[Rfam]
RNA sequence: UUUUUCCUUCGGGGUCGGGUGAAAUUCCCAACCGGCGGUGAUCAAAGGGCUGCUCUUCUCGUUUAAGCGAAUGAGAGCCAUUAACUUUGUCAGUCCGUGACCCGGGUUGCUUCAAGUCAGUGUACCCUUUGCAGGGAGCAAGGCUGAAGCGAAACGGUGGACCUGGUGUAAAUCCGGGACCGACAGUAUAGUCUGGAUGGGAGAAGGAGACG
Numbered sequence: 001u002u003u004u005u006c007c008u009u010c011g012g013g014g015u016c017g018g019g020u021g022a023a024a025u026u027c028c029c030a031a032c033c034g035g036c037g038g039u040g041a042u043c044a045a046a047g048g049g050c051u052g053c054u055c056u057u058c059u060c061g062u063u064u065a066a067g068c069g070a071a072u073g074a075g076a077g078c079c080a081u082u083a084a085c086u087u088u089g090u091c092a093g094u095c096c097g098u099g100a101c102c103c104g105g106g107u108u109g110c111u112u113c114a115a116g117u118c119a120g121u122g123u124a125c126c127c128u129u130u131g132c133a134g135g136g137a138g139c140a141a142g143g144c145u146g147a148a149g150c151g152a153a154a155c156g157g158u159g160g161a162c163c164u165g166g167u168g169u170a171a172a173u174c175c176g177g178g179a180c181c182g183a184c185a186g187u188a189u190a191g192u193c194u195g196g197a198u199g200g201g202a203g204a205a206g207g208a209g210a211c212g
Base pairs, nucleotide, nucleotide: 003210004209005208006207007206008205009204010203017029018028019027031192032191033182034181035098036097037096038095102157103156162178163177164176165175166174184195185194186193
Dot-bracket structure: ..((((((((......(((.......))).[[((((((........................................................))))...((....................................................))....(((((.......)))))..)).(((....]]))).......))))))))..
Background
A member of the RNA family "FMN riboswitch aptamer (RFN element)" from Paenibacillus albus, 212 nucleotides long. Lineage of the source: Bacteria > Bacillati > Caryophanales > Paenibacillaceae > Paenibacillus. The base pairs follow the family's consensus structure, which is taken from published work. A search with the family's covariance model found it, with a score of 97 bits.